[Rfam]
This 86-nucleotide sequence belongs to the Rfam family "L4-Archaeoglobi ribosomal protein leades".

RNA sequence: CUGACCAGCACGCAUGGGUCGACGUUCAUGCAACGAGCCCGUUUCAUCUGCUUCAAACAUGAGGCAGAUGGAUGCGUUAUUGUCAG
Number, nucleotide and partner (000 for none) at each position: 001c086002u085003g084004a083005c082006c000007a000008g000009c000010a077011c076012g075013c074014a000015u041016g040017g039018g038019u000020c000021g000022a000023c035024g034025u033026u032027c000028a000029u000030g000031c000032a026033a025034c024035g023036a000037g000038c018039c017040c016041g015042u000043u072044u071045c070046a069047u068048c067049u066050g065051c064052u063053u062054c000055a000056a000057a000058c000059a000060u000061g000062a053063g052064g051065c050066a049067g048068a047069u046070g045071g044072a043073u000074g013075c012076g011077u010078u000079a000080u000081u000082g005083u004084c003085a002086g001